[Rfam]
Annotation: A member of the RNA family "c-di-AMP riboswitch aptamer (ydaO/yuaA leader)" from Smithella sp. SCADC, 132 nucleotides long.
RNA sequence: CAUAAUCCAAUGCCUAAUCCUGACUUACAGGAGCGGAGGAACCAUUUUUUUCGGGGCGCAUCGCUACGGCGUAGGGUAAUCUCUUCGACCCGAGCCCUUCAGCUAACUUCGCAGGCUUCGAUGAGGAGAACC
Numbered sequence: 001c002a003u004a005a006u007c008c009a010a011u012g013c014c015u016a017a018u019c020c021u022g023a024c025u026u027a028c029a030g031g032a033g034c035g036g037a038g039g040a041a042c043c044a045u046u047u048u049u050u051u052c053g054g055g056g057c058g059c060a061u062c063g064c065u066a067c068g069g070c071g072u073a074g075g076g077u078a079a080u081c082u083c084u085u086c087g088a089c090c091c092g093a094g095c096c097c098u099u100c101a102g103c104u105a106a107c108u109u110c111g112c113a114g115g116c117u118u119c120g121a122u123g124a125g126g127a128g129a130a131c132c
Stems, first nucleotide, its partner, number of pairs: 012116003018032003033112006043053001054097003062071003074091004